Background:
Purine riboswitch aptamer: a 100-nucleotide RNA sequence from Gracilibacillus ureilyticus. The base pairs follow the family's consensus structure, which is taken from published work. It scores 76 bits against the family's covariance model.
RNA sequence: AAAAUAUUUAUAAAAAUCAUUCGUAUAUUCUUAGAAUAAUGGUCUAAGAGUCUCUACUGGGAACCGAUAAAUCCUAACUACGAAUGGGUGGAAAAAUUCU
Numbered sequence: 001a002a003a004a005u006a007u008u009u010a011u012a013a014a015a016a017u018c019a020u021u022c023g024u025a026u027a028u029u030c031u032u033a034g035a036a037u038a039a040u041g042g043u044c045u046a047a048g049a050g051u052c053u054c055u056a057c058u059g060g061g062a063a064c065c066g067a068u069a070a071a072u073c074c075u076a077a078c079u080a081c082g083a084a085u086g087g088g089u090g091g092a093a094a095a096a097u098u099c100u
Stems, first nucleotide, its partner, number of pairs: 018086008029049007058076005
Dot-bracket structure: .................((((((((...(((((((.......)))))))........(((((.........)))))..))))))))..............